TPP riboswitch aptamer (THI element): a 113-nucleotide sequence from Hydrogenophaga aromaticivorans.
[Rfam]
RNA sequence: CGCCCUGCUCCGGGGUGCACAGACCGAAAGGUCCAGCGCUGAGAUGGUUGAAAAACCGAACCCGUGAACUUGAUCUGGCUAGUACCAGCGAAAGAAGAGCGCAGCCCCCAGGG
Number, nucleotide and partner (000 for none) at each position: 001c000002g000003c000004c000005c000006u101007g100008c099009u098010c097011c064012g063013g062014g061015g000016u058017g039018c038019a000020c036021a000022g000023a000024c000025c000026g000027a000028a000029a000030g000031g000032u000033c000034c000035a000036g020037c000038g018039c017040u000041g000042a000043g000044a000045u000046g057047g056048u055049u054050g000051a000052a000053a000054a049055a048056c047057c046058g016059a000060a000061c014062c013063c012064g011065u000066g000067a000068a000069c094070u093071u092072g000073a000074u000075c088076u087077g086078g085079c000080u000081a000082g000083u000084a000085c078086c077087a076088g075089c000090g000091a000092a071093a070094g069095a000096a000097g010098a009099g008100c007101g006102c000103a000104g000105c000106c000107c000108c000109c000110a000111g000112g000113g000